[Rfam]
RNA sequence: UAAUAAUCUGGCAAUGGAGUUUGCCAGCCCGCGUUUUCGAAGUGUUUUGGGCAAACCCCUUUUCUUUUAGGAAAAGGCGAUAACUCCUACUUCAAA
Numbered sequence: 001u002a003a004u005a006a007u008c009u010g011g012c013a014a015u016g017g018a019g020u021u022u023g024c025c026a027g028c029c030c031g032c033g034u035u036u037u038c039g040a041a042g043u044g045u046u047u048u049g050g051g052c053a054a055a056c057c058c059c060u061u062u063u064c065u066u067u068u069a070g071g072a073a074a075a076g077g078c079g080a081u082a083a084c085u086c087c088u089a090c091u092u093c094a095a096a
Stems, first nucleotide, its partner, number of pairs: 010025004016087006058077008
Dot-bracket structure: .........[[[[..((((((]]]]................................((((((((....))))))))....)))))).........